The family of this 52-nucleotide RNA from Celeribacter baekdonensis is "serC leader". Taxonomically the source falls in Celeribacter baekdonensis (Bacteria, Alphaproteobacteria, Rhodobacterales, Roseobacteraceae). A search with the family's covariance model found it, with a score of 68 bits. This family is a putative regulatory RNA structure that is found upstream of the serC-serA operon in some alpha-proteobacteria. Rfam links the family to the GO term regulation of gene expression.
RNA sequence: CAACGGGACACCUCUCCCCAACGAGAGGCAUUUAUCUGUAAGGAUACCAGCA
Numbered sequence: 001c002a003a004c005g006g007g008a009c010a011c012c013u014c015u016c017c018c019c020a021a022c023g024a025g026a027g028g029c030a031u032u033u034a035u036c037u038g039u040a041a042g043g044a045u046a047c048c049a050g051c052a
Base pairs, nucleotide, nucleotide: 011028012027013026014025015024016023033046034045035044036043037042